Small nucleolar RNA Z122: an 82-nucleotide RNA sequence from Populus deltoides. Its family is annotated with nucleolus and RNA processing in the Gene Ontology. The source organism's lineage runs through Eukaryota, Viridiplantae, Streptophyta, rosids and Populus. Rfam 15.1 lists 822 matches to the family in 247 species. The match comes from Rfam's covariance-model search (39 bits).
Nucleotides: 082
Base pairs, nucleotide, nucleotide: 001082002081003080005078006077007076
Number, partner (000 for none) and nucleotide at each position: 001082u002081u003080u004000g005078g006077g007076a008000a009000a010000u011000g012000a013000u014000g015000c016000c017000c018000a019000g020000a021000u022000u023000c024000a025000a026000a027000c028000a029000g030000a031000g032000g033000c034000g035000c036000c037000a038000g039000c040000u041000g042000u043000a044000u045000g046000u047000g048000c049000u050000g051000a052000u053000u054000a055000a056000u057000c058000a059000a060000u061000u062000g063000c064000a065000c066000g067000g068000c069000a070000g071000u072000c073000u074000a075000a076007u077006c078005c079000a080003a081002a082001a